[Rfam]
RNA sequence: CUCUGUUUCCGAAUUGGAUUCAGGGCGGAAGGAG
Numbered sequence: 001c002u003c004u005g006u007u008u009c010c011g012a013a014u015u016g017g018a019u020u021c022a023g024g025g026c027g028g029a030a031g032g033a034g
Stems, first nucleotide, its partner, number of pairs: 001025005008018003
Record summary:
A member of the RNA family "L31-Firmicutes ribosomal protein leader" from Bacillus sp. MSP5.4, 34 nucleotides long. A reference for the family is Eckert and Weinberg (2020), "Discovery of 20 novel ribosomal leader candidates in bacteria and archaea", BMC Microbiol.